[Rfam]
RNA sequence: UUUUGUGAGAGUAUGAUACCGGCUCAGGACGAACGCUGGCGGCGUGGAUUAGGCAUGCAAGCCGAACGAGAAGUCGGGCUUCGGCCCGAUGGAAAGUGGCGAAAGGGUGAGUAACGCGUGGGUAAUUUACCUCUGAGAUGGGGAUAACAAUUCGAAAGGAUUGCUAAUACCAAAUACGAUCCGGUUGACUUCGGUCGGCCGAAUGAAAGGUGGCUUCGGCUGCCGCUCGGAGAUGAGCCCGCGUCCUAUUAGCUUGUUGGUGAGGUAACGGCUCACCAAGGCAACGAUGGGUAGCUGGUCUGAGAGGAUGGUCAGCCACAUUGGGACUGAGACACUGCCCAAACUCCUACGGGAGGCUGCAGUCGAGAAUAUUUCGCAAUGGGGGAAACCCUGACGAUGCGACGCCGCGUGGGGGAUGAAGGCCUUCGGGUUGUAAACCUCUGUGUUAUGGGAUGAAUUGGUCGUUGCCGAUAAAGCAACGUUUUUGACGUUACCAUAGUAGAAAGCCCCAGCUAACUACGUGCCAGCAGCUGCGGUAAUACGUAGGGGGCAAGCGUUGUCCGGAAUCACUG
Numbered sequence: 001u002u003u004u005g006u007g008a009g010a011g012u013a014u015g016a017u018a019c020c021g022g023c024u025c026a027g028g029a030c031g032a033a034c035g036c037u038g039g040c041g042g043c044g045u046g047g048a049u050u051a052g053g054c055a056u057g058c059a060a061g062c063c064g065a066a067c068g069a070g071a072a073g074u075c076g077g078g079c080u081u082c083g084g085c086c087c088g089a090u091g092g093a094a095a096g097u098g099g100c101g102a103a104a105g106g107g108u109g110a111g112u113a114a115c116g117c118g119u120g121g122g123u124a125a126u127u128u129a130c131c132u133c134u135g136a137g138a139u140g141g142g143g144a145u146a147a148c149a150a151u152u153c154g155a156a157a158g159g160a161u162u163g164c165u166a167a168u169a170c171c172a173a174a175u176a177c178g179a180u181c182c183g184g185u186u187g188a189c190u191u192c193g194g195u196c197g198g199c200c201g202a203a204u205g206a207a208a209g210g211u212g213g214c215u216u217c218g219g220c221u222g223c224c225g226c227u228c229g230g231a232g233a234u235g236a237g238c239c240c241g242c243g244u245c246c247u248a249u250u251a252g253c254u255u256g257u258u259g260g261u262g263a264g265g266u267a268a269c270g271g272c273u274c275a276c277c278a279a280g281g282c283a284a285c286g287a288u289g290g291g292u293a294g295c296u297g298g299u300c301u302g303a304g305a306g307g308a309u310g311g312u313c314a315g316c317c318a319c320a321u322u323g324g325g326a327c328u329g330a331g332a333c334a335c336u337g338c339c340c341a342a343a344c345u346c347c348u349a350c351g352g353g354a355g356g357c358u359g360c361a362g363u364c365g366a367g368a369a370u371a372u373u374u375c376g377c378a379a380u381g382g383g384g385g386a387a388a389c390c391c392u393g394a395c396g397a398u399g400c401g402a403c404g405c406c407g408c409g410u411g412g413g414g415g416a417u418g419a420a421g422g423c424c425u426u427c428g429g430g431u432u433g434u435a436a437a438c439c440u441c442u443g444u445g446u447u448a449u450g451g452g453a454u455g456a457a458u459u460g461g462u463c464g465u466u467g468c469c470g471a472u473a474a475a476g477c478a479a480c481g482u483u484u485u486u487g488a489c490g491u492u493a494c495c496a497u498a499g500u501a502g503a504a505a506g507c508c509c510c511a512g513c514u515a516a517c518u519a520c521g522u523g524c525c526a527g528c529a530g531c532u533g534c535g536g537u538a539a540u541a542c543g544u545a546g547g548g549g550g551c552a553a554g555c556g557u558u559g560u561c562c563g564g565a566a567u568c569a570c571u572g
Base pairs, nucleotide, nucleotide: 009025010024011023012022027562028561029560030559032558033557034556035555036554037553039408040407041406042405043404044403045401046400052364053363054362056361057360058359061100062099063098066097067096073090074089075088076087077086078085079084107319108318109317116244117243118242119241120240121239122238123237126236127235131232132231133230134229135228136227137226139173141171142170148163149162150161151160152159153158179204180203182201183200184199185198187196188195189194209224210223211222212221213220245291246290247289252282253281254280257279258278259277260276261275262274263273264272294316295315296314297313298309299308300307301306321342322341323340324339325338344355345354346353347352374397375396376395380393381392382391383390384389411441412440413439414438421432422431423430424429446499447498448497449496450495451494455489461483463481464480465479466478467477506551507550508549509548510547517546518545519544520543521542527534528533
The record is a 572-nucleotide part of an RNA from uncultured Poribacteria bacterium 64K2, which matches "Bacterial small subunit ribosomal RNA" in Rfam. For this family Rfam cites "Crystal structure of the ribosome at 5.5 A resolution" (Yusupov et al., Science, 2001). The organism belongs to Candidatus Poribacteria, within Bacteria.